[Rfam]
RNA sequence: UACUCAUGUUUCUUUUCAGAUCGUAUAAAUCUUUCGCCUUUUACUAAAGAUUUCCGUGGAGAGGAACAACAUGAGAUUUAUUUAAUUUUUGAUACCCUGAUUGUAACAGGGUU
Dot-bracket structure: ..((((.(((((((((((........((((((((...........))))))))...)))))))))))....))))..................((((((.......)))))).
This 113-nucleotide sequence from Xiphophorus maculatus belongs to the Rfam family "U5 spliceosomal RNA".
Rfam classes the family as a spliceosomal small nuclear RNA.
The base pairs follow the family's consensus structure, which is taken from published work.
U5 RNA is a component of both types of known spliceosome.